[Rfam]
The record is a 173-nucleotide RNA from Sutcliffiella halmapala, which matches "Group II catalytic intron D1-D4-3" in Rfam.
NCBI's taxonomy places the organism under Bacteria, Bacilli, Caryophanales, Bacillaceae, Sutcliffiella.
The sequence is in the family's curated seed alignment.
The base pairs follow the family's consensus structure.
Its family is annotated with Group II intron splicing in the Gene Ontology.
RNA sequence: UCUGGGGUGACCCAGAAUCUGAAGGAAGUCGGCGGCAAACCUCCGCUCCUAGGAACACGAACUUCAUAUAAGGCUAGGUAGACUUGGGUGAGAUUGCCUAACAAAUCAAAGUCCAGACUGCCAAAGGGUCUACCGAGUAAAUGAAGAGGAGACAUGGAGGGGAAGAAUGUGUA
Numbered sequence: 001u002c003u004g005g006g007g008u009g010a011c012c013c014a015g016a017a018u019c020u021g022a023a024g025g026a027a028g029u030c031g032g033c034g035g036c037a038a039a040c041c042u043c044c045g046c047u048c049c050u051a052g053g054a055a056c057a058c059g060a061a062c063u064u065c066a067u068a069u070a071a072g073g074c075u076a077g078g079u080a081g082a083c084u085u086g087g088g089u090g091a092g093a094u095u096g097c098c099u100a101a102c103a104a105a106u107c108a109a110a111g112u113c114c115a116g117a118c119u120g121c122c123a124a125a126g127g128g129u130c131u132a133c134c135g136a137g138u139a140a141a142u143g144a145a146g147a148g149g150a151g152a153c154a155u156g157g158a159g160g161g162g163a164a165g166a167a168u169g170u171g172u173a
Stems, first nucleotide, its partner, number of pairs: 001016006030171002036165001040160006046151005062146006073138003077134007086114004092107004